[Rfam]
RNA sequence: AGGUGAAUGGCAGGGCAAUUCUCCUUUGGCGGAAGCAAGAACGACAUAAAACAUUCGCAUGCAUGCCAAUUGCAGUUCUCUUCUGCCAAAGGAGAAUUACACUGUUAUUCACCC
Numbered sequence: 001a002g003g004u005g006a007a008u009g010g011c012a013g014g015g016c017a018a019u020u021c022u023c024c025u026u027u028g029g030c031g032g033a034a035g036c037a038a039g040a041a042c043g044a045c046a047u048a049a050a051a052c053a054u055u056c057g058c059a060u061g062c063a064u065g066c067c068a069a070u071u072g073c074a075g076u077u078c079u080c081u082u083c084u085g086c087c088a089a090a091g092g093a094g095a096a097u098u099a100c101a102c103u104g105u106u107a108u109u110c111a112c113c114c
Stems, first nucleotide, its partner, number of pairs: 005110005011104003015100001017098003021094004027088009